[Rfam]
RNA sequence: UGCAUUAAGCAGAAGCCAUCCGCUUCUCACCUUACGACGCCUGGGGGCAGUUAGUAAGGUAACAGUAGGCAAUCAUUUUGAUAUGCUAUUACGCGGGUGGUUUAUACCACCCGUUUUUUAUUUUAUUU
Numbered sequence: 001u002g003c004a005u006u007a008a009g010c011a012g013a014a015g016c017c018a019u020c021c022g023c024u025u026c027u028c029a030c031c032u033u034a035c036g037a038c039g040c041c042u043g044g045g046g047g048c049a050g051u052u053a054g055u056a057a058g059g060u061a062a063c064a065g066u067a068g069g070c071a072a073u074c075a076u077u078u079u080g081a082u083a084u085g086c087u088a089u090u091a092c093g094c095g096g097g098u099g100g101u102u103u104a105u106a107c108c109a110c111c112c113g114u115u116u117u118u119u120a121u122u123u124u125a126u127u128u
Stems, first nucleotide, its partner, number of pairs: 011027006029060003036052003039048002093114009
RNA: Ribosomal protein L20 leader